RNA sequence: AGUAAGGAUAGAGGCGCAAAAACCAUCAGUACACAGUUUGAGGAUGAUGAGAUCCGGGGAUGAUUGUGGAAAGGGGAAUUUGCCGAAGCUUUGGAGAUCCUCAUAGUCUCAAAAGCUGGUUCUGCAUUGAAGAAAUGCAGAAUUGUCAUAUAGGUUUCUAUAUGGAGGGCUAUCUUACGC
Numbered sequence: 001a002g003u004a005a006g007g008a009u010a011g012a013g014g015c016g017c018a019a020a021a022a023c024c025a026u027c028a029g030u031a032c033a034c035a036g037u038u039u040g041a042g043g044a045u046g047a048u049g050a051g052a053u054c055c056g057g058g059g060a061u062g063a064u065u066g067u068g069g070a071a072a073g074g075g076g077a078a079u080u081u082g083c084c085g086a087a088g089c090u091u092u093g094g095a096g097a098u099c100c101u102c103a104u105a106g107u108c109u110c111a112a113a114a115g116c117u118g119g120u121u122c123u124g125c126a127u128u129g130a131a132g133a134a135a136u137g138c139a140g141a142a143u144u145g146u147c148a149u150a151u152a153g154g155u156u157u158c159u160a161u162a163u164g165g166a167g168g169g170c171u172a173u174c175u176u177a178c179g180c
Stems, first nucleotide, its partner, number of pairs: 006175006016083005023076002032068007087117006094110005118144011146165007
Annotation
A member of the RNA family "Lysine riboswitch aptamer" from Ureibacillus yapensis, 180 nucleotides long. Lineage of the source: Bacteria > Bacillati > Caryophanales > Caryophanaceae > Ureibacillus.